[Rfam]
RNA sequence: AACUAUAUUAGAGGUUGCAGAUACGAAAAAUGAUAGUCGAGUGGUGGACACGAGGACAUUAUCAGGCGGCGUAGAUGCCGAAAGUCGGAUUUCACCACAGAAAUUUGGCUUGGGGCGUUGGGUUAAAUCCCGCGAACUGUCUUUUGUCUAUCCAGACAAGAGGUGAGCUAAUCAAAUG
Numbered sequence: 001a002a003c004u005a006u007a008u009u010a011g012a013g014g015u016u017g018c019a020g021a022u023a024c025g026a027a028a029a030a031u032g033a034u035a036g037u038c039g040a041g042u043g044g045u046g047g048a049c050a051c052g053a054g055g056a057c058a059u060u061a062u063c064a065g066g067c068g069g070c071g072u073a074g075a076u077g078c079c080g081a082a083a084g085u086c087g088g089a090u091u092u093c094a095c096c097a098c099a100g101a102a103a104u105u106u107g108g109c110u111u112g113g114g115g116c117g118u119u120g121g122g123u124u125a126a127a128u129c130c131c132g133c134g135a136a137c138u139g140u141c142u143u144u145u146g147u148c149u150a151u152c153c154a155g156a157c158a159a160g161a162g163g164u165g166a167g168c169u170a171a172u173c174a175a176a177u178g
Stems, first nucleotide, its partner, number of pairs: 007172005017078003022073004031064007082111012112138002116134003120130003140163007
Dot-bracket structure: ......(((((.....(((..((((.....(((((((....................))))))).....))))..)))...((((((((((((......))))))))))))((..(((.(((.....))).)))..)).(((((((..........)))))))....)))))......